Shown here is a 73-nucleotide RNA from Marinosulfonomonas sp. PRT-SC04, a member of the family "Singlet oxygen resistance RNA X".
About the family: SorX (RSs2461)like SorY is a singlet oxygen induced sRNA that counteracts oxidative stress by targeting mRNA for a transporter in Rhodobacter. It also has an impact on resistance against organic hydroperoxides. It targets SD sequence of potA mRNA via an aSD sequence.
Rfam links the family to the GO term response to photooxidative stress.
A reference for the family is Peng et al. (2016), "Regulation of a polyamine transporter by the conserved 3' UTR-derived sRNA SorX confers resistance to singlet oxygen and organic hydroperoxides in Rhodobacter sphaeroides", RNA Biol.
By type it is a small RNA.
RNA sequence: UUCCCCUGCAUGUCGGGGUUAUGACAUGCACCUCCCUGUUGAACUGGCCCGGCCUUUGUGCCGGGUCUUUUUU
Numbered sequence: 001u002u003c004c005c006c007u008g009c010a011u012g013u014c015g016g017g018g019u020u021a022u023g024a025c026a027u028g029c030a031c032c033u034c035c036c037u038g039u040u041g042a043a044c045u046g047g048c049c050c051g052g053c054c055u056u057u058g059u060g061c062c063g064g065g066u067c068u069u070u071u072u073u
Stems, first nucleotide, its partner, number of pairs: 008029007046067008